[Rfam]
Notes: Guanidine-I riboswitch aptamer: a 103-nucleotide RNA from Actinospica durhamensis. Pairs were carried over by alignment from the consensus structure. The match comes from Rfam's covariance-model search (75 bits). The organism belongs to Actinospica, within Bacteria. Its family is annotated with regulation of gene expression in the Gene Ontology. This family represents a conserved RNA structure found upstream of the ykkC and yxkD genes in Bacillus subtilis and related genes in other bacteria.
RNA sequence: GCGGGGCGCGUCUAGGGUUCCGCCGGAUGGCACCGGGUCUGGUCCGAGAGAUGCAGGCGGGGCCCACGGCUCCGUUCCACGGCGGGAGAAAAGCCCGGGAGGC
Number, nucleotide and partner (000 for none) at each position: 001g000002c000003g000004g000005g000006g000007c000008g054009c053010g052011u051012c050013u000014a000015g045016g044017g000018u000019u000020c042021c041022g039023c036024c035025g034026g033027a000028u000029g000030g000031c000032a000033c026034c025035g024036g023037g000038u000039c022040u000041g021042g020043u000044c016045c015046g000047a000048g000049a000050g012051a011052u010053g009054c008055a000056g076057g075058c074059g073060g072061g071062g070063c069064c000065c000066a000067c000068g000069g063070c062071u061072c060073c059074g058075u057076u056077c000078c098079a000080c101081g000082g000083c000084g096085g095086g094087a000088g000089a000090a000091a000092a000093g000094c086095c085096c084097g000098g078099g000100a000101g080102g000103c000